The record is a 166-nucleotide RNA from Lancefieldella parvula, which matches "FMN riboswitch aptamer (RFN element)" in Rfam. Pairs were carried over by alignment from the consensus structure, which is taken from published work. It scores 89 bits against the family's covariance model.

[Rfam]
RNA sequence: GGUAUGUUUCAGGAAAGGGUGCAAUUCCCUACUGGUGGUAAGGUGGCCGAACUUCAAGGUUUGUAACAACCUCGCUCAAGGAGCCAUCAAGUCCGCGACCCGCACAAGCGGUUAACCUGGUUAAAUUCCAGGACCAACGGUACAGUCCGGAUGUAAGAAACGGAGU
Numbered sequence: 001g002g003u004a005u006g007u008u009u010c011a012g013g014a015a016a017g018g019g020u021g022c023a024a025u026u027c028c029c030u031a032c033u034g035g036u037g038g039u040a041a042g043g044u045g046g047c048c049g050a051a052c053u054u055c056a057a058g059g060u061u062u063g064u065a066a067c068a069a070c071c072u073c074g075c076u077c078a079a080g081g082a083g084c085c086a087u088c089a090a091g092u093c094c095g096c097g098a099c100c101c102g103c104a105c106a107a108g109c110g111g112u113u114a115a116c117c118u119g120g121u122u123a124a125a126u127u128c129c130a131g132g133a134c135c136a137a138c139g140g141u142a143c144a145g146u147c148c149g150g151a152u153g154u155a156a157g158a159a160a161c162g163g164a165g166u
Stems, first nucleotide, its partner, number of pairs: 003164001005162006017029003031146002033136002035096004100111002116132005138149003